[Rfam]
RNA sequence: CUAAGGAAGUGAGGAGACAUUUUAUUUUUGUGUCUCUUCCUUGAGGUAUAGUGAAAUCGAAGGCUGAGAUAUUGUUCCAGUCAUCAGUUUUCUCAAUUGAUAAAUUGGUUGUUGCUUGUACACAU
Number, nucleotide and partner (000 for none) at each position: 001c030002u000003a028004a027005g000006g000007a023008a022009g021010u019011g000012a000013g000014g000015a000016g000017a000018c000019a010020u000021u009022u008023u007024a000025u000026u000027u004028u003029u000030g001031u000032g000033u000034c000035u000036c000037u000038u000039c000040c000041u000042u000043g000044a000045g000046g000047u000048a000049u000050a000051g000052u000053g000054a000055a000056a000057u000058c000059g000060a000061a000062g121063g000064c000065u118066g117067a116068g115069a000070u000071a109072u108073u107074g106075u000076u000077c000078c000079a000080g000081u103082c000083a101084u100085c099086a098087g000088u096089u095090u000091u000092c000093u000094c000095a089096a088097u000098u086099g085100a084101u083102a000103a081104a000105u000106u074107g073108g072109u071110u000111g000112u000113u000114g000115c068116u067117u066118g065119u000120a000121c062122a000123c000124a000125u000
The record is a 125-nucleotide RNA sequence from Gossypium mustelinum, which matches "Small nucleolar RNA snoR111" in Rfam.
Pairs were carried over by alignment from the consensus structure, which was predicted with WAR.
The family has 6 seed sequences and 533 matches in Rfam 15.1.
By type it is an H/ACA-box small nucleolar RNA.
The organism belongs to Gossypium, within Eukaryota.